The family of this 444-nucleotide sequence from Mytilinidion resinicola is "RNase MRP".
Its Rfam clan is "RNaseP clan".
The source organism's lineage runs through Eukaryota, Dikarya, saccharomyceta, Pleosporomycetidae and Mytilinidion.
From the family's description: RNase MRP is an enzymatically active ribonucleoprotein with two distinct roles in eukaryotes.

[Rfam]
RNA sequence: UCCUCGCUCGAAGAAUCGCAUUCAAAGCUUACACACAGAGACGCGUCUUCGGACGUGCUUUCUUACUUGCACACUGCUUUGGGAGAAAGUCCCCGGACACCCUGCCUCGCAGGCACCCGUGCCAACACGCCGCCACAGAAGCACCGCGGCCUCGUCCACCAACCCAUUGGAUUCGCUCUCAGCGUCGUCUGCACUCCCGCUGCCGCCAGCAAUGCUCCGCCCGCAAUGGUUCUGGCACCACGGACGAAGAUACGAGUCCGCCAGUCCCGGAGCAGGUGUGUCGCAGUGCUGUGUGGGCAGUGUGGAGGAGAAGCUUUGAGCUGAAGUCAGUGGCGGGCGAGGGUUUUUUCGUCAAGAUGGAUAGUUAUGCGAUUGCCUUUCCUCAUGCCACGUUCUUCGGGGUGUGCGGGAGGUAACUCGAUGGGGCUUAUUCUCGAUGCGAGG
Numbered sequence: 001u002c003c004u005c006g007c008u009c010g011a012a013g014a015a016u017c018g019c020a021u022u023c024a025a026a027g028c029u030u031a032c033a034c035a036c037a038g039a040g041a042c043g044c045g046u047c048u049u050c051g052g053a054c055g056u057g058c059u060u061u062c063u064u065a066c067u068u069g070c071a072c073a074c075u076g077c078u079u080u081g082g083g084a085g086a087a088a089g090u091c092c093c094c095g096g097a098c099a100c101c102c103u104g105c106c107u108c109g110c111a112g113g114c115a116c117c118c119g120u121g122c123c124a125a126c127a128c129g130c131c132g133c134c135a136c137a138g139a140a141g142c143a144c145c146g147c148g149g150c151c152u153c154g155u156c157c158a159c160c161a162a163c164c165c166a167u168u169g170g171a172u173u174c175g176c177u178c179u180c181a182g183c184g185u186c187g188u189c190u191g192c193a194c195u196c197c198c199g200c201u202g203c204c205g206c207c208a209g210c211a212a213u214g215c216u217c218c219g220c221c222c223g224c225a226a227u228g229g230u231u232c233u234g235g236c237a238c239c240a241c242g243g244a245c246g247a248a249g250a251u252a253c254g255a256g257u258c259c260g261c262c263a264g265u266c267c268c269g270g271a272g273c274a275g276g277u278g279u280g281u282c283g284c285a286g287u288g289c290u291g292u293g294u295g296g297g298c299a300g301u302g303u304g305g306a307g308g309a310g311a312a313g314c315u316u317u318g319a320g321c322u323g324a325a326g327u328c329a330g331u332g333g334c335g336g337g338c339g340a341g342g343g344u345u346u347u348u349u350c351g352u353c354a355a356g357a358u359g360g361a362u363a364g365u366u367a368u369g370c371g372a373u374u375g376c377c378u379u380u381c382c383u384c385a386u387g388c389c390a391c392g393u394u395c396u397u398c399g400g401g402g403u404g405u406g407c408g409g410g411a412g413g414u415a416a417c418u419c420g421a422u423g424g425g426g427c428u429u430a431u432u433c434u435c436g437a438u439g440c441g442a443g444g
Stems, first nucleotide, its partner, number of pairs: 002444006008437004014374006022083001023081006042057005087429003091426004105113002226346001228344001231342003235338002238335001241332001243328003312322004376413006